This 103-nucleotide RNA sequence from Roseiflexus castenholzii belongs to the Rfam family "Glycine riboswitch aptamer". A reference for the family is Mandal et al. (2004), "A glycine-dependent riboswitch that uses cooperative binding to control gene expression", Science. The match comes from Rfam's covariance-model search (66 bits).
RNA sequence: AUGACGGGCGUGGGAGAGCGCCGCGUAAGCGGUCGCCGAAGGAGCAAGCCAGGGAAGCCGGGCCCUGCGCGAAUCUCUCAGGCUGAAGGACUGCGCCCCGACG
Numbered sequence: 001a002u003g004a005c006g007g008g009c010g011u012g013g014g015a016g017a018g019c020g021c022c023g024c025g026u027a028a029g030c031g032g033u034c035g036c037c038g039a040a041g042g043a044g045c046a047a048g049c050c051a052g053g054g055a056a057g058c059c060g061g062g063c064c065c066u067g068c069g070c071g072a073a074u075c076u077c078u079c080a081g082g083c084u085g086a087a088g089g090a091c092u093g094c095g096c097c098c099c100g101a102c103g
Base pairs, nucleotide, nucleotide: 006098007097008096009095010094011093012092013091020033021032022031023030035083036082037081038079039078042077043076044075048070049069
The source organism's lineage runs through Bacteria, Chloroflexota, Roseiflexaceae, Roseiflexus and Roseiflexus castenholzii.